[Rfam]
A member of the RNA family "7SK RNA" from Penelope pileata, 300 nucleotides long. The family has 45 seed sequences and 49,373 matches in Rfam 15.1. It scores 194 bits against the family's covariance model. The family's RNA type in Rfam is non-coding RNA gene. About the family: 7SK was discovered as an abundant small nuclear RNA in the mid-70s but a possible function has only recently been suggested. The family is grouped with related families in Rfam's "7SK clan". The organism belongs to Penelope, within Eukaryota.

RNA sequence: GGAUGUGAGAGUGUUCUGGCUGCAACAUCUGUCACCCCAUUGAUCACUAGGGUUGAUUUGGCUGAUCUGGCUGGCUAGGCAGGUGUUCCCCCCUCACUGCUCCAUGUGCAUCCCUCCUGAAGCUGUGCACUCCGUCUAAGACAACCUUCCCCAAUAGAGAUGAUACCAUUCAUCAGUCAAGGAUAUGACCUGCUAGAACCUCCAAACAAGCUGAAGGUCCAUUUAUAGGAGAAGGUUGGGUAGUCAAGCUUCCAAGUCUGCAGACACAACCAAGUGAGGUACUACAUGGGGAACAGGCUU
Numbered sequence: 001g002g003a004u005g006u007g008a009g010a011g012u013g014u015u016c017u018g019g020c021u022g023c024a025a026c027a028u029c030u031g032u033c034a035c036c037c038c039a040u041u042g043a044u045c046a047c048u049a050g051g052g053u054u055g056a057u058u059u060g061g062c063u064g065a066u067c068u069g070g071c072u073g074g075c076u077a078g079g080c081a082g083g084u085g086u087u088c089c090c091c092c093c094u095c096a097c098u099g100c101u102c103c104a105u106g107u108g109c110a111u112c113c114c115u116c117c118u119g120a121a122g123c124u125g126u127g128c129a130c131u132c133c134g135u136c137u138a139a140g141a142c143a144a145c146c147u148u149c150c151c152c153a154a155u156a157g158a159g160a161u162g163a164u165a166c167c168a169u170u171c172a173u174c175a176g177u178c179a180a181g182g183a184u185a186u187g188a189c190c191u192g193c194u195a196g197a198a199c200c201u202c203c204a205a206a207c208a209a210g211c212u213g214a215a216g217g218u219c220c221a222u223u224u225a226u227a228g229g230a231g232a233a234g235g236u237u238g239g240g241u242a243g244u245c246a247a248g249c250u251u252c253c254a255a256g257u258c259u260g261c262a263g264a265c266a267c268a269a270c271c272a273a274g275u276g277a278g279g280u281a282c283u284a285c286a287u288g289g290g291g292a293a294c295a296g297g298c299u300u
Stems, first nucleotide, its partner, number of pairs: 001103003005097005011091001018090002024087010035074002037070003042067004047061002111163002114159003117134001119132002122130001135154001140149002182249001184247001186242001189239002192236002200231004206226001208224003277300004283293001285291001